[Rfam]
RNA: tRNA
RNA sequence: AAAAAGAUAAGCUAAUUAAGCUACUGGGUUCAUACCCCAUUUAUAAAGGUUAUAAUCCUUUUCUUUUUA
Numbered sequence: 001a002a003a004a005a006g007a008u009a010a011g012c013u014a015a016u017u018a019a020g021c022u023a024c025u026g027g028g029u030u031c032a033u034a035c036c037c038c039a040u041u042u043a044u045a046a047a048g049g050u051u052a053u054a055a056u057c058c059u060u061u062u063c064u065u066u067u068u069a
Stems, first nucleotide, its partner, number of pairs: 001068007010022004025039004045061005